[Rfam]
RNA sequence: UCUCGAUAAAGGCAAACCAUGUGAAAAUGUGGGACGCAAAACUAUAGGGGCUAAGGACAUUCGUUGUCUAAGCUUGCCAGUUACCGAA
Numbered sequence: 001u002c003u004c005g006a007u008a009a010a011g012g013c014a015a016a017c018c019a020u021g022u023g024a025a026a027a028u029g030u031g032g033g034a035c036g037c038a039a040a041a042c043u044a045u046a047g048g049g050g051c052u053a054a055g056g057a058c059a060u061u062c063g064u065u066g067u068c069u070a071a072g073c074u075u076g077c078c079a080g081u082u083a084c085c086g087a088a
Base pairs, nucleotide, nucleotide: 012037013036017032018031019030020029021028022027040082041081042080043079047078048077049074050073051072056068057067058066059065